[Rfam]
RNA sequence: AAUGUGUGAUGACAAACUGUUUCGGUCCCAAUCGAGGGGCCUGAUUACUUACGAGAUCAACUGCCUUUCCCAUU
Numbered sequence: 001a002a003u004g005u006g007u008g009a010u011g012a013c014a015a016a017c018u019g020u021u022u023c024g025g026u027c028c029c030a031a032u033c034g035a036g037g038g039g040c041c042u043g044a045u046u047a048c049u050u051a052c053g054a055g056a057u058c059a060a061c062u063g064c065c066u067u068u069c070c071c072a073u074u
Base pairs, nucleotide, nucleotide: 001074002073003072004071
RNA: Small nucleolar RNA SNORD73